[Rfam]
RNA sequence: UGUGUGGAGGUAAGGAACUACGUCGUGUUCUCUCUUUCGGUAAAUCCUUUCCUCUCACUGU
Dot-bracket structure: .(((.(((((..(((.(....(((..............)))...).))).))))))))...
This 61-nucleotide RNA sequence from Monodelphis domestica belongs to the Rfam family "mir-7398 microRNA precursor family". The sequence is in the family's curated seed alignment.